[Rfam]
RNA sequence: AUACUUACCUGGACGGGGUCAAUGGGUGAUCAAGAUAGGCUCAUGGCCUAGGUUGGUGACUUCCAUUGCACUUUGGCGGGGUGCCCGCCUAUGGUCUCCCCAAGUGGGAGAGCCAAUGUCAUAAUUUGUGGUAGGGGGGCCUGUGUUCGCGCGGCCCCUG
Dot-bracket structure: ...........((((((((((.(((((...........)))))))))))(((.(.(((.(((((..........)).))).)))..)))).((((((.((.....)).))).))).))))..............(((((..((((....)))).))))).

The record is a 160-nucleotide sequence from Trema andersonii, which matches "U1 spliceosomal RNA" in Rfam. The source organism's lineage runs through Eukaryota, Euphyllophyta, fabids, Cannabaceae and Trema. Pairs were carried over by alignment from the consensus structure, which is taken from published work. Its family is annotated with pre-mRNA 5'-splice site binding, mRNA 5'-splice site recognition and U1 snRNP in the Gene Ontology. The match comes from Rfam's covariance-model search (134 bits). Clan: U1 clan. Rfam describes the family as follows. U1 is a small nuclear RNA (snRNA) component of the spliceosome (involved in pre-mRNA splicing).